[Rfam]
transfer-messenger RNA: a 368-nucleotide RNA from Vibrio parahaemolyticus. Bacterial tmRNA, also known as 10Sa RNA or SsrA, is named for its dual tRNA and mRNA-like properties. Its role is to liberate the mRNA from a stalled ribosome.
RNA sequence: GGGGCUGAUUUAGGAUUCGACGGGAAUUCAGAAGUCUGAGGUGCAUGCCGAGGUGCGGUAGGCCUCGUUAACAAACCGCAAAAAAAUAGUCGCAAACGACGAAAACUACGCACUAGCAGCUUAAUACCCUGCUCAGAGCUCUCUCGCCCUAGCUUCCGCACGUAAGACGGGGAAUAACGAGAGAUCAAACCCAAACGCGCUAGCCCGGAUUCUCCCGCCUGAGAGAUGAACGGCGAAUUAUAAUUCAGGAUAGUCAUUCAUUAGCGUGUCGGUUCGCAGGUGGAUGGUGAAUUUAAAGAUCGACUAAGCAUGUAGUACCAAUGAUGAAAGGUUUUCGGACGCGGGUUCAACUCCCGCCAGCUCCACCA
Numbered sequence: 001g002g003g004g005c006u007g008a009u010u011u012a013g014g015a016u017u018c019g020a021c022g023g024g025a026a027u028u029c030a031g032a033a034g035u036c037u038g039a040g041g042u043g044c045a046u047g048c049c050g051a052g053g054u055g056c057g058g059u060a061g062g063c064c065u066c067g068u069u070a071a072c073a074a075a076c077c078g079c080a081a082a083a084a085a086a087u088a089g090u091c092g093c094a095a096a097c098g099a100c101g102a103a104a105a106c107u108a109c110g111c112a113c114u115a116g117c118a119g120c121u122u123a124a125u126a127c128c129c130u131g132c133u134c135a136g137a138g139c140u141c142u143c144u145c146g147c148c149c150u151a152g153c154u155u156c157c158g159c160a161c162g163u164a165a166g167a168c169g170g171g172g173a174a175u176a177a178c179g180a181g182a183g184a185u186c187a188a189a190c191c192c193a194a195a196c197g198c199g200c201u202a203g204c205c206c207g208g209a210u211u212c213u214c215c216c217g218c219c220u221g222a223g224a225g226a227u228g229a230a231c232g233g234c235g236a237a238u239u240a241u242a243a244u245u246c247a248g249g250a251u252a253g254u255c256a257u258u259c260a261u262u263a264g265c266g267u268g269u270c271g272g273u274u275c276g277c278a279g280g281u282g283g284a285u286g287g288u289g290a291a292u293u294u295a296a297a298g299a300u301c302g303a304c305u306a307a308g309c310a311u312g313u314a315g316u317a318c319c320a321a322u323g324a325u326g327a328a329a330g331g332u333u334u335u336c337g338g339a340c341g342c343g344g345g346u347u348c349a350a351c352u353c354c355c356g357c358c359a360g361c362u363c364c365a366c367c368a
Base pairs, nucleotide, nucleotide: 001364002363003362004361005360006359007358021337022336023335024334025333026332027331028330034325035324036323040319041318042317044312045311046310047309048308049067050066051065052064053063054080055079056078057077058076059075113136114135116132117131118130119129140184141183142182143181144180145179147172148171149170150169153166154165155164158200159199161197162196163195203234204233205232218249219248220247221246222245253288254287255286256285257284258283259282260281261280262279264277265276266275268304269303270302271301272300273299274298341357342356343355344354345353
Taxonomically the source falls in Vibrio parahaemolyticus (Bacteria, Pseudomonadati, Pseudomonadota, Gammaproteobacteria).